[Rfam]
RNA sequence: CUGUCUUUUGCUUGAACAGUGUUUGGACGGAACAG
Numbered sequence: 001c002u003g004u005c006u007u008u009u010g011c012u013u014g015a016a017c018a019g020u021g022u023u024u025g026g027a028c029g030g031a032a033c034a035g
Stems, first nucleotide, its partner, number of pairs: 001035004006031003010028001012027002015024002017021001

This 35-nucleotide RNA sequence from Cnephaeus nilssonii belongs to the Rfam family "Iron response element I".
The organism belongs to Cnephaeus, within Eukaryota.
It is annotated as a cis-regulatory element.
A reference for the family is Nichol and Winzerling (2002), "Structured RNA upstream of insect cap distal iron responsive elements enhances iron regulatory protein-mediated control of translation", Insect Biochem Mol Biol.
The match comes from Rfam's covariance-model search (40 bits).
The family's consensus secondary structure is taken from published work.
Rfam links the family to the GO term response to iron ion.